[Rfam]
RNA: RNase MRP
RNA sequence: GGAUCCGCUACCAGCUUGUCAUCGGAGCUACGUUCGGGUCUAUUUGACUCAUAAUGCUCUGGGUAAAGUCCCCGAACCCACUGACGGAGAGCGGUCGUACUGUAAAGGUACUGUUCUAUUCUCACUCCUAACUGCAACUGUGAAGGUUCUGCCUGAGUUGUGAGGAAAUCAAGGAAUAGGAAACAGUUCAAUAUUCAUAAGAAAUACAAGCAGAACUUAUAGUUCUUACAGAAUGGGGCUUAUUGGAAGUGGAUC
Numbered sequence: 001g002g003a004u005c006c007g008c009u010a011c012c013a014g015c016u017u018g019u020c021a022u023c024g025g026a027g028c029u030a031c032g033u034u035c036g037g038g039u040c041u042a043u044u045u046g047a048c049u050c051a052u053a054a055u056g057c058u059c060u061g062g063g064u065a066a067a068g069u070c071c072c073c074g075a076a077c078c079c080a081c082u083g084a085c086g087g088a089g090a091g092c093g094g095u096c097g098u099a100c101u102g103u104a105a106a107g108g109u110a111c112u113g114u115u116c117u118a119u120u121c122u123c124a125c126u127c128c129u130a131a132c133u134g135c136a137a138c139u140g141u142g143a144a145g146g147u148u149c150u151g152c153c154u155g156a157g158u159u160g161u162g163a164g165g166a167a168a169u170c171a172a173g174g175a176a177u178a179g180g181a182a183a184c185a186g187u188u189c190a191a192u193a194u195u196c197a198u199a200a201g202a203a204a205u206a207c208a209a210g211c212a213g214a215a216c217u218u219a220u221a222g223u224u225c226u227u228a229c230a231g232a233a234u235g236g237g238g239c240u241u242a243u244u245g246g247a248a249g250u251g252g253a254u255c
Stems, first nucleotide, its partner, number of pairs: 002255008011246001014211006022062007036050005066241003070238004083095001085093002097111004113177003118169003125164003135160004145153003213225005